[Rfam]
RNA sequence: AUAAUCAGCGAGGGGUGCCGAUUGCCAACCAUGGACUAGUUCCCAUGCGUUGACCGGCUGAGAUAAUACUCUUAGAACCUGAUCCGGAUUAUACCGGCGGAGGGACUGCUACUUUUCUGUUUU
Numbered sequence: 001a002u003a004a005u006c007a008g009c010g011a012g013g014g015g016u017g018c019c020g021a022u023u024g025c026c027a028a029c030c031a032u033g034g035a036c037u038a039g040u041u042c043c044c045a046u047g048c049g050u051u052g053a054c055c056g057g058c059u060g061a062g063a064u065a066a067u068a069c070u071c072u073u074a075g076a077a078c079c080u081g082a083u084c085c086g087g088a089u090u091a092u093a094c095c096g097g098c099g100g101a102g103g104g105a106c107u108g109c110u111a112c113u114u115u116u117c118u119g120u121u122u123u
Stems, first nucleotide, its partner, number of pairs: 007110004011072004016066001017058004078103003084097004
A member of the RNA family "TPP riboswitch aptamer (THI element)", 123 nucleotides long.
Pairs were carried over by alignment from the consensus structure, which is taken from published work.
About the family: Vitamin B(1) in its active form thiamin pyrophosphate (TPP) is an essential coenzyme that is synthesised by coupling of pyrimidine and thiazole moieties in bacteria.
The match comes from Rfam's covariance-model search (65 bits).